[Rfam]
RNA sequence: ACUUAAUGACUGGUAAUUCCUUAAUUGAUUAAGAGUUGAAUCUUUUAGUUAAGUAUUAUGUUGUGUUUGCAUAUUGUUUGGGUAACCAAACAAAAGUAAUUAAUCCUUCUAUUUAAUUACUUAUUAACUUCCUGUAUAUUUACUACCUAAUUUUAGGUUAUUGGCACCGCGCUUAAACUCCAAAAAAGUGCGGUGUUU
Numbered sequence: 001a002c003u004u005a006a007u008g009a010c011u012g013g014u015a016a017u018u019c020c021u022u023a024a025u026u027g028a029u030u031a032a033g034a035g036u037u038g039a040a041u042c043u044u045u046u047a048g049u050u051a052a053g054u055a056u057u058a059u060g061u062u063g064u065g066u067u068u069g070c071a072u073a074u075u076g077u078u079u080g081g082g083u084a085a086c087c088a089a090a091c092a093a094a095a096g097u098a099a100u101u102a103a104u105c106c107u108u109c110u111a112u113u114u115a116a117u118u119a120c121u122u123a124u125u126a127a128c129u130u131c132c133u134g135u136a137u138a139u140u141u142a143c144u145a146c147c148u149a150a151u152u153u154u155a156g157g158u159u160a161u162u163g164g165c166a167c168c169g170c171g172c173u174u175a176a177a178c179u180c181c182a183a184a185a186a187a188g189u190g191c192g193g194u195g196u197u198u
Stems, first nucleotide, its partner, number of pairs: 009049004015045002023041001025039002028037001030035001074093008095121009138162001140160001163197012
Shown here is a 198-nucleotide sequence from Actinobacillus succinogenes, a member of the family "GcvB RNA". It is one of the family's seed sequences. For this family Rfam cites "The gcvB gene encodes a small untranslated RNA involved in expression of the dipeptide and oligopeptide transport systems in Escherichia coli" (Urbanowski et al., Mol Microbiol, 2000). Rfam classes the family as a non-coding RNA gene. Its family is annotated with mRNA binding and regulation of gene expression in the Gene Ontology.